[Rfam]
Rfam assigns this 80-nucleotide sequence from Flavobacterium psychrotolerans to the family "Flavo-1 RNA".
Lineage of the source: Bacteria > Pseudomonadati > Flavobacteriia > Flavobacteriales > Flavobacterium.
The family has 201 seed sequences and 7,497 matches in Rfam 15.1.
It scores 80 bits against the family's covariance model.
Rfam classes the family as a small RNA.

RNA sequence: AUUUAGCCCCGAUUGCAGCGGAAAUCCUUUUCUUUUUUUCUUUAAAAAGAAAAAGAUUGAAGCGAAAAGCGGGAACAUGA
Numbered sequence: 001a002u003u004u005a006g007c008c009c010c011g012a013u014u015g016c017a018g019c020g021g022a023a024a025u026c027c028u029u030u031u032c033u034u035u036u037u038u039u040c041u042u043u044a045a046a047a048a049g050a051a052a053a054a055g056a057u058u059g060a061a062g063c064g065a066a067a068a069g070c071g072g073g074a075a076c077a078u079g080a
Stems, first nucleotide, its partner, number of pairs: 009072003013068002018063002023058004029053003033049006